[Rfam]
The record is a 149-nucleotide sequence from Desulforamulus ferrireducens, which matches "glmS glucosamine-6-phosphate activated ribozyme aptamer" in Rfam. This entry contains a glucosamine-6-phosphate activated ribozyme that is found in the mRNA for GlmS. GlmS is an enzyme that uses fructose-6-phosphate and glutamine to generate glucosamine-6-phosphate. The ribozyme catalyses self cleavage of the glmS mRNA that is thought to regulate GlmS activity. It is annotated as a riboswitch. It scores 94 bits against the family's covariance model. Pairs were carried over by alignment from the consensus structure, which is taken from published work.
RNA sequence: AAUACCAAGCAAGCGCCAGAACCCCGUUGGGGUUGACGAGGAGAGGGAGUAUCGAAGUUUUCGGCGGAUGCCCUCCGGCCCGGUCACGGCCGAUAGCGUAGGAUAAAACCAAGGGGUAACCCUGGGUACAAACACUACCGGUGACCAAC
Number, nucleotide and partner (000 for none) at each position: 001a000002a000003u000004a000005c000006c000007a000008a000009g000010c000011a000012a000013g000014c000015g000016c000017c000018a000019g000020a034021a033022c032023c031024c030025c029026g000027u000028u000029g025030g024031g023032g022033u021034u020035g000036a000037c000038g000039a000040g000041g000042a000043g075044a074045g073046g072047g071048a000049g000050u000051a000052u064053c063054g062055a061056a000057g000058u000059u000060u000061u055062c054063g053064g052065c000066g000067g000068a000069u000070g000071c047072c046073c045074u044075c043076c092077g091078g090079c089080c088081c000082g000083g000084u000085c000086a000087c000088g080089g079090c078091c077092g076093a000094u000095a000096g000097c141098g138099u137100a136101g135102g000103a000104u000105a000106a000107a000108a000109c126110c125111a000112a123113g122114g121115g120116g000117u000118a000119a000120c115121c114122c113123u112124g000125g110126g109127u000128a000129c000130a000131a000132a000133c000134a000135c101136u100137a099138c098139c000140g000141g097142u000143g000144a000145c000146c000147a000148a000149c000